[Rfam]
RNA sequence: CAGGCAUGCUGGGCUCCGCAGCGGCGCCCGGGUUACGCACCCGCCACCGUGUCCACACCGGAGCUUAU
Numbered sequence: 001c002a003g004g005c006a007u008g009c010u011g012g013g014c015u016c017c018g019c020a021g022c023g024g025c026g027c028c029c030g031g032g033u034u035a036c037g038c039a040c041c042c043g044c045c046a047c048c049g050u051g052u053c054c055a056c057a058c059c060g061g062a063g064c065u066u067a068u
Stems, first nucleotide, its partner, number of pairs: 012065007022049003029043005
The family of this 68-nucleotide sequence from Rhizobium tibeticum is "ybhL leader". It is annotated as a cis-regulatory leader. Rfam's curators write: This family is a putative regulatory RNA structure that is found upstream of an uncharacterized membrane protein in alpha-proteobacteria. A reference for the family is Corbino et al. (2005), "Evidence for a second class of S-adenosylmethionine riboswitches and other regulatory RNA motifs in alpha-proteobacteria", Genome Biol. The pairing is the family consensus, mapped onto this sequence.